[Rfam]
RNA sequence: UGUGGGAGCGAGAUUAAGGCUUGCUGGUUUCACGUUCGAGUAAAGUCAGUCUUUUUCUCUCUCCUAUU
Number, nucleotide and partner (000 for none) at each position: 001u000002g067003u066004g065005g064006g063007a062008g061009c000010g059011a058012g057013a056014u000015u000016a053017a052018g051019g050020c049021u048022u000023g046024c045025u044026g000027g000028u000029u000030u000031c000032a000033c000034g000035u000036u000037c000038g000039a000040g000041u000042a000043a000044a025045g024046u023047c000048a021049g020050u019051c018052u017053u016054u000055u000056u013057c012058u011059c010060u000061c008062u007063c006064c005065u004066a003067u002068u000